[Rfam]
RNA sequence: CCGUUCUUGUGUUAUUUGCUAGGUGUUUCAUCCUACCCUAGUGAUUGUCAAACAGAACGCAGAAUAAUCACCAGGCAGCUAAUCACUCCAUAAUGCUUAGUCGACUUUAUCCAGGACUACAGCAUUACUAAAUGCGCGCCAUAUUU
Numbered sequence: 001c002c003g004u005u006c007u008u009g010u011g012u013u014a015u016u017u018g019c020u021a022g023g024u025g026u027u028u029c030a031u032c033c034u035a036c037c038c039u040a041g042u043g044a045u046u047g048u049c050a051a052a053c054a055g056a057a058c059g060c061a062g063a064a065u066a067a068u069c070a071c072c073a074g075g076c077a078g079c080u081a082a083u084c085a086c087u088c089c090a091u092a093a094u095g096c097u098u099a100g101u102c103g104a105c106u107u108u109a110u111c112c113a114g115g116a117c118u119a120c121a122g123c124a125u126u127a128c129u130a131a132a133u134g135c136g137c138g139c140c141a142u143a144u145u146u
Base pairs, nucleotide, nucleotide: 002059003058004057005056006055007054010050011049016044017043018042019041020040021039022038092126093125094124095123096122099118100117101116102115

Rfam assigns this 146-nucleotide RNA sequence from Drosophila ananassae to the family "Small nucleolar RNA psi18S-1377". Gene Ontology terms of the family: nucleolus and RNA processing. NCBI's taxonomy places the organism under Eukaryota, Metazoa, Insecta, Acalyptratae, ananassae species complex. Rfam's curators write: psi18S-1377 is a member of the H/ACA class of snoRNA. This family is responsible for guiding the modification of uridines 1377 and 1279 to pseudouridine in Drosophila 18S rRNA.